Notes:
Rfam assigns this 109-nucleotide RNA from Desulfosarcina alkanivorans to the family "c-di-GMP-I-GGC riboswitch aptamer". A search with the family's covariance model found it, with a score of 68 bits.

RNA sequence: AACGACAACGCCAAACCCCGGGCGACCGGGGGACGGAAAGCCACGGGUCUUAAAAACAGCCUGAAAACAUUGGAUCAGGCUUUCAAUAGAGAUCGCCGGGUUGCCGAAG
Numbered sequence: 001a002a003c004g005a006c007a008a009c010g011c012c013a014a015a016c017c018c019c020g021g022g023c024g025a026c027c028g029g030g031g032g033a034c035g036g037a038a039a040g041c042c043a044c045g046g047g048u049c050u051u052a053a054a055a056a057c058a059g060c061c062u063g064a065a066a067a068c069a070u071u072g073g074a075u076c077a078g079g080c081u082u083u084c085a086a087u088a089g090a091g092a093u094c095g096c097c098g099g100g101u102u103g104c105c106g107a108a109g
Stems, first nucleotide, its partner, number of pairs: 003106002011036002016031006034095001039102004044098003047093005